[Rfam]
The family of this 54-nucleotide RNA sequence from Muraenolepis orangiensis is "UnaL2 LINE 3' element". The eel long interspersed element (LINE) UnaL2 and its partner short interspersed element (SINE) share a conserved 3' tail containing a stem-loop that is critical for their retrotransposition. The literature on the family includes a 2004 paper in RNA by Baba et al., "Solution structure of an RNA stem-loop derived from the 3' conserved region of eel LINE UnaL2". The source organism's lineage runs through Eukaryota, Deuterostomia, Euteleostomi, Actinopterygii and Muraenolepis. It scores 57 bits against the family's covariance model. The base pairs follow the family's consensus structure, which is taken from published work.

RNA sequence: UACUACGACUUCUGUAAGUCCCUUUGGACAAAAGCGUCUGCUAAAUGGCUGUAA
Numbered sequence: 001u002a003c004u005a006c007g008a009c010u011u012c013u014g015u016a017a018g019u020c021c022c023u024u025u026g027g028a029c030a031a032a033a034g035c036g037u038c039u040g041c042u043a044a045a046u047g048g049c050u051g052u053a054a
Stems, first nucleotide, its partner, number of pairs: 013043001014041003020036001022034004